This 105-nucleotide RNA from Natribacillus halophilus belongs to the Rfam family "Glycine riboswitch aptamer". Rfam links the family to the GO term glycine biosynthetic process. Clan: Glycine riboswitch clan.
[Rfam]
RNA sequence: UUGAUGACAGAGGGAGAGCCCGUUUUUGUUUGGCAGACUAAAACGGCGCCGAAGGAGCAAGCCCCAUCCGGUGAAUCUCUCAGGCACACGUACUUCUGUCUGACG
Number, nucleotide and partner (000 for none) at each position: 001u000002u000003g000004a000005u000006g100007a099008c098009a097010g096011a095012g094013g093014g000015a000016g000017a000018g000019c000020c046021c045022g044023u043024u042025u041026u040027u000028g000029u000030u000031u000032g000033g000034c000035a000036g000037a000038c000039u000040a026041a025042a024043a023044c022045g021046g020047c000048g085049c084050c083051g081052a080053a000054g000055g079056a078057g077058c000059a000060a000061g072062c071063c000064c000065c000066a000067u000068c000069c000070g000071g062072u061073g000074a000075a000076u000077c057078u056079c055080u052081c051082a000083g050084g049085c048086a000087c000088a000089c000090g000091u000092a000093c013094u012095u011096c010097u009098g008099u007100c006101u000102g000103a000104c000105g000